[Rfam]
RNA sequence: AAGAUCAUACUUCUACAGGAUCAUUUCUGUAGUAGAUCUUCACAAAAUCCGGCUACAACAGUCGAAUACCUUAAACCACGAUGAGGAAGCGUGGCGUUCUCCCCUGAGCGUGAGGCAGUUUUGGAAGUUCAGUAAUGCGAACUUCCAAAACAUCGAUGACCGUCAGCUUUCCCUUACCAGGGAAGGCGUGGGGAGUACGCUUUCUGAGUGGU
Numbered sequence: 001a002a003g004a005u006c007a008u009a010c011u012u013c014u015a016c017a018g019g020a021u022c023a024u025u026u027c028u029g030u031a032g033u034a035g036a037u038c039u040u041c042a043c044a045a046a047a048u049c050c051g052g053c054u055a056c057a058a059c060a061g062u063c064g065a066a067u068a069c070c071u072u073a074a075a076c077c078a079c080g081a082u083g084a085g086g087a088a089g090c091g092u093g094g095c096g097u098u099c100u101c102c103c104c105u106g107a108g109c110g111u112g113a114g115g116c117a118g119u120u121u122u123g124g125a126a127g128u129u130c131a132g133u134a135a136u137g138c139g140a141a142c143u144u145c146c147a148a149a150a151c152a153u154c155g156a157u158g159a160c161c162g163u164c165a166g167c168u169u170u171c172c173c174u175u176a177c178c179a180g181g182g183a184a185g186g187c188g189u190g191g192g193g194a195g196u197a198c199g200c201u202u203u204c205u206g207a208g209u210g211g212u
Stems, first nucleotide, its partner, number of pairs: 001040005008034004016029005050064002054061001075212005094200004099195006108163003118151008127142004166187009

Small nucleolar RNA U3: a 212-nucleotide RNA sequence from Cimex lectularius. Its Rfam clan is "U3 clan". The source organism's lineage runs through Eukaryota, Eumetazoa, Neoptera, Cimicoidea and Cimex. It is annotated as a C/D-box small nucleolar RNA. Rfam 15.1 lists 19,072 matches to the family in 1,215 species. About the family: Small nucleolar RNAs (snoRNAs) are involved in the processing and modification of rRNA in the nucleolus. There are two main classes of snoRNAs: the box C/D class, and the box H/ACA class. U3 snoRNA is a member of the box C/D class. Indeed, the box C/D element is a subset of the six short sequence elements found in all U3 snoRNAs, namely boxes A, A', B, C, C', and D. The U3 snoRNA secondary structure is characterised by a small 5' domain (with boxes A and A'), and a larger 3' domain (with boxes B, C, C', and D), the two domains being linked by a single-stranded hinge. Boxes B and C form the B/C motif, which appears to be exclusive to U3 snoRNAs, and boxes C' and D form the C'/D motif. The latter is functionally similar to the C/D motifs found in other snoRNAs. The 5' domain and the hinge region act as a pre-rRNA-binding domain. The 3' domain has conserved protein-binding sites. Both the box B/C and box C'/D motifs are sufficient for nuclear retention of U3 snoRNA. The box C'/D motif is also necessary for nucleolar localisation, stability and hyper-methylation of U3 snoRNA. Both box B/C and C'/D motifs are involved in specific protein interactions and are necessary for the rRNA processing functions of U3 snoRNA. The family's consensus secondary structure is taken from published work.